Shown here is a 119-nucleotide RNA sequence from Arabidopsis thaliana, a member of the family "mir-5014 microRNA precursor family".

RNA sequence: UUUGAUUCGUACACUUAAAUUUGUACAACACUUUUAGUGUACAGAUGUAAGUGUACGCUGUGUACAUUUAUUUAUUUGUACACUAAAAAUGUUGUACAAAACUAAGUGUACGAAUCAAA
Number, nucleotide and partner (000 for none) at each position: 001u119002u118003u117004g116005a115006u114007u113008c112009g111010u110011a109012c108013a107014c106015u105016u104017a103018a000019a000020u100021u099022u098023g097024u096025a095026c094027a093028a092029c091030a090031c000032u088033u087034u086035u085036a084037g083038u082039g081040u080041a079042c078043a077044g076045a075046u074047g000048u070049a069050a068051g000052u000053g065054u064055a063056c062057g000058c000059u000060g000061u000062g056063u055064a054065c053066a000067u000068u050069u049070a048071u000072u000073u000074a046075u045076u044077u043078g042079u041080a040081c039082a038083c037084u036085a035086a034087a033088a032089a000090u030091g029092u028093u027094g026095u025096a024097c023098a022099a021100a020101a000102c000103u017104a016105a015106g014107u013108g012109u011110a010111c009112g008113a007114a006115u005116c004117a003118a002119a001
About this RNA
Rfam links the family to the GO terms RISC complex and miRNA-mediated post-transcriptional gene silencing. The family's consensus secondary structure was predicted with RNAalifold. Taxonomically the source falls in Arabidopsis (Eukaryota, Viridiplantae, Embryophyta, eudicotyledons).